Shown here is a 53-nucleotide RNA sequence from Stakelama marina, a member of the family "serC leader".
RNA sequence: CGGCGGGCCACGCGGUCCCAACGCCGCGCGUGCUCUCUGAAAGGAGAGUCUAU
Numbered sequence: 001c002g003g004c005g006g007g008c009c010a011c012g013c014g015g016u017c018c019c020a021a022c023g024c025c026g027c028g029c030g031u032g033c034u035c036u037c038u039g040a041a042a043g044g045a046g047a048g049u050c051u052a053u
Base pairs, nucleotide, nucleotide: 011028012027013026014025015024016023033048034047035046036045037044038043

The base pairs follow the family's consensus structure. Rfam describes the family as follows. This family is a putative regulatory RNA structure that is found upstream of the serC-serA operon in some alpha-proteobacteria. The final stem of the structure overlaps the ribosome binding site of the serC reading frame. The literature on the family includes a 2005 paper in Genome Biol by Corbino et al., "Evidence for a second class of S-adenosylmethionine riboswitches and other regulatory RNA motifs in alpha-proteobacteria".